[Rfam]
RNA sequence: CCGUGCUAGUCGGGGAGGUAGCGGUGCCCUGUACCCGCAAUCCGCUCCAGCGGGGAUGAAUCCCCUCCAGAGGCUGAUUUACUGUAGGGUCUGCCUUAAGCAAGUGGUGUUGACGCCCGGGUCCUGCGCAAUGGGAAUCCAUGAACCAUGUCAGGUCCGGAAGGAAGCAGCAUUAAGUGGACGCUCCUAUGUGCCGCAGGGUUGCCUGGGCCGAGCUAACUGCUUAAGUAACGCUUAUGGUAUUCAGUCGACGGAAGGUGCGCGG
Numbered sequence: 001c002c003g004u005g006c007u008a009g010u011c012g013g014g015g016a017g018g019u020a021g022c023g024g025u026g027c028c029c030u031g032u033a034c035c036c037g038c039a040a041u042c043c044g045c046u047c048c049a050g051c052g053g054g055g056a057u058g059a060a061u062c063c064c065c066u067c068c069a070g071a072g073g074c075u076g077a078u079u080u081a082c083u084g085u086a087g088g089g090u091c092u093g094c095c096u097u098a099a100g101c102a103a104g105u106g107g108u109g110u111u112g113a114c115g116c117c118c119g120g121g122u123c124c125u126g127c128g129c130a131a132u133g134g135g136a137a138u139c140c141a142u143g144a145a146c147c148a149u150g151u152c153a154g155g156u157c158c159g160g161a162a163g164g165a166a167g168c169a170g171c172a173u174u175a176a177g178u179g180g181a182c183g184c185u186c187c188u189a190u191g192u193g194c195c196g197c198a199g200g201g202u203u204g205c206c207u208g209g210g211c212c213g214a215g216c217u218a219a220c221u222g223c224u225u226a227a228g229u230a231a232c233g234c235u236u237a238u239g240g241u242a243u244u245c246a247g248u249c250g251a252c253g254g255a256a257g258g259u260g261c262g263c264g265g
Stems, first nucleotide, its partner, number of pairs: 001265006009057003012030004017025001019023001034054005063258002066255003072249005080242009092230002096227006104220002106217003115211008123200006129191002132189005138181005148173004156165003
RNA: Bacterial large signal recognition particle RNA